The record is a 72-nucleotide sequence from Clostridium sp. CAG:354, which matches "tRNA" in Rfam. It scores 58 bits against the family's covariance model. Rfam links the family to the GO term triplet codon-amino acid adaptor activity. Rfam classes the family as a transfer RNA. Rfam's curators write: Transfer RNA (tRNA) molecules are approximately 80 nucleotides in length. Pairs were carried over by alignment from the consensus structure, which is taken from published work. The family is grouped with related families in Rfam's "tRNA clan".
RNA sequence: AGGGGUAUAGUGUUAAUGGUAGCACAUCGGUCUCCAAAACCGCCUGUGAGGGUUCGAAUCCUUCUACCCCUG
Dot-bracket structure: (((((((..((((........))))..((((.......)))).....(((((.......)))))))))))).